[Rfam]
sodF sRNA: a 91-nucleotide RNA from Streptomyces kanasensis. The pairing is the family consensus, mapped onto this sequence. By type it is a small RNA. A reference for the family is Kim et al. (2014), "Inverse regulation of Fe- and Ni-containing SOD genes by a Fur family regulator Nur through small RNA processed from 3'UTR of the sodF mRNA", Nucleic Acids Res.

RNA sequence: UCGUCCUGCUCGUGAUCGUCUUCUCACCCUUCACGUGGCAGGCGGAUGGAGGAACGGCCCCCCGCGAGGACAGGACUCGCGGGGGGCCGUU
Dot-bracket structure: (((.((((((.((((..(.........)..))))..))))))))).......((((((((((((((((.......))))))))))))))))